[Rfam]
RNA sequence: CGGGCUCGGGGGUGCUGGGCUGCUUGUCUCUGGAGAGCAAUGUUGAAUCCCUGAGAAGAGAGAGCAUGGGGCGUGCUGAUUUAAAAACAGAAAAUGCAAAGUCGGACUGAAAAUAUCCUUAGUCUUCCAAGCAAUCUGCUUAAGGGUUCCACACUUACCUUAAUUUGGUGAGCAAAGAAGCUGCCCUAUUUUCCUUUCUUCUUCUUCGACAACUGGAACCAGCCUUUCCCGAACACUACCACCAUG
Numbered sequence: 001c002g003g004g005c006u007c008g009g010g011g012g013u014g015c016u017g018g019g020c021u022g023c024u025u026g027u028c029u030c031u032g033g034a035g036a037g038c039a040a041u042g043u044u045g046a047a048u049c050c051c052u053g054a055g056a057a058g059a060g061a062g063a064g065c066a067u068g069g070g071g072c073g074u075g076c077u078g079a080u081u082u083a084a085a086a087a088c089a090g091a092a093a094a095u096g097c098a099a100a101g102u103c104g105g106a107c108u109g110a111a112a113a114u115a116u117c118c119u120u121a122g123u124c125u126u127c128c129a130a131g132c133a134a135u136c137u138g139c140u141u142a143a144g145g146g147u148u149c150c151a152c153a154c155u156u157a158c159c160u161u162a163a164u165u166u167g168g169u170g171a172g173c174a175a176a177g178a179a180g181c182u183g184c185c186c187u188a189u190u191u192u193c194c195u196u197u198c199u200u201c202u203u204c205u206u207c208g209a210c211a212a213c214u215g216g217a218a219c220c221a222g223c224c225u226u227u228c229c230c231g232a233a234c235a236c237u238a239c240c241a242c243c244a245u246g
Stems, first nucleotide, its partner, number of pairs: 032230002035227002053203010064192001066189008075181003080176003088138004095133003102130001104128003109124002154172006